[Rfam]
RNA sequence: AGCUUUGCGCAGUGGCAGUAUCAUAGCCUGUGAGGUUUAGCCGAGGCGCGAUUAUUGCUAGUUGAAAACUUUUCCCAAUACCCCGCUUCCGCCGGUUUGCAAUAUAUUCGGCGAAAGCAAUUUUUGACAGUCUCGUCAGAGA
Numbered sequence: 001a002g003c004u005u006u007g008c009g010c011a012g013u014g015g016c017a018g019u020a021u022c023a024u025a026g027c028c029u030g031u032g033a034g035g036u037u038u039a040g041c042c043g044a045g046g047c048g049c050g051a052u053u054a055u056u057g058c059u060a061g062u063u064g065a066a067a068a069c070u071u072u073u074c075c076c077a078a079u080a081c082c083c084c085g086c087u088u089c090c091g092c093c094g095g096u097u098u099g100c101a102a103u104a105u106a107u108u109c110g111g112c113g114a115a116a117g118c119a120a121u122u123u124u125u126g127a128c129a130g131u132c133u134c135g136u137c138a139g140a141g142a
Base pairs, nucleotide, nucleotide: 020052021051022050024048026047027046028045034042035041036040085118086117087116088115090113091112092111093110094109095108097106131142132141133140134139

The record is a 142-nucleotide RNA from Atractosteus spatula, which matches "U4 spliceosomal RNA" in Rfam. Rfam classes the family as a spliceosomal small nuclear RNA. The match comes from Rfam's covariance-model search (116 bits). Lineage of the source: Eukaryota > Teleostomi > Euteleostomi > Actinopteri > Atractosteus.